About this RNA:
This 178-nucleotide RNA from Paenibacillus sedimenti belongs to the Rfam family "PyrR binding site". Its family is annotated with pyrimidine nucleobase transport and pyrimidine nucleobase biosynthetic process in the Gene Ontology. This family represents the PyrR binding site and terminator structure. This RNA structure is found upstream of a variety of genes involved in pyrimidine biosynthesis and transport. The alignment also includes a portion of the antiterminator structure. It scores 63 bits against the family's covariance model. NCBI's taxonomy places the organism under Bacteria, Bacillota, Bacilli, Caryophanales, Paenibacillus.
[Rfam]
RNA sequence: UGUACCUUUAAAAACAGUCCAGAGAGGCUGGCAAGGUAGUCGUUAAGAAAAGACGGGAUAUGCCGGAUCGAGUAUUCGGUAUAUGAACAAGCAUAAGGAUGUGCGCAUCCUAAUGACCCGCUCUGUAUCUUUGUGCACGCACAACUCCUUGCCAAUACAUGGCAGGGAGUUUUUUUAU
Numbered sequence: 001u002g003u004a005c006c007u008u009u010a011a012a013a014a015c016a017g018u019c020c021a022g023a024g025a026g027g028c029u030g031g032c033a034a035g036g037u038a039g040u041c042g043u044u045a046a047g048a049a050a051a052g053a054c055g056g057g058a059u060a061u062g063c064c065g066g067a068u069c070g071a072g073u074a075u076u077c078g079g080u081a082u083a084u085g086a087a088c089a090a091g092c093a094u095a096a097g098g099a100u101g102u103g104c105g106c107a108u109c110c111u112a113a114u115g116a117c118c119c120g121c122u123c124u125g126u127a128u129c130u131u132u133g134u135g136c137a138c139g140c141a142c143a144a145c146u147c148c149u150u151g152c153c154a155a156u157a158c159a160u161g162g163c164a165g166g167g168a169g170u171u172u173u174u175u176u177a178u
Stems, first nucleotide, its partner, number of pairs: 003038006015030005051082001053080002056077006063070001141173001143171012
The family's RNA type in Rfam is cis-regulatory element.